A member of the RNA family "Betaproteobacteria toxic small RNA" from Oxalobacteraceae bacterium IMCC9480, 64 nucleotides long. Rfam's curators write: Overexpression in amino aid rich medium attenuates growth, suggesting role in repressing amino acid intake and metabolism. The source organism's lineage runs through Bacteria, Pseudomonadati, Pseudomonadota, Burkholderiales and Oxalobacteraceae.
[Rfam]
RNA sequence: CGUCUCCUCCAUUACUCCUCCAAGAGUAUGGAUUUCAGCCCGCUCCUUGAGCGGGCUUUUUUUU
Numbered sequence: 001c002g003u004c005u006c007c008u009c010c011a012u013u014a015c016u017c018c019u020c021c022a023a024g025a026g027u028a029u030g031g032a033u034u035u036c037a038g039c040c041c042g043c044u045c046c047u048u049g050a051g052c053g054g055g056c057u058u059u060u061u062u063u064u
Stems, first nucleotide, its partner, number of pairs: 008032005014027002037057008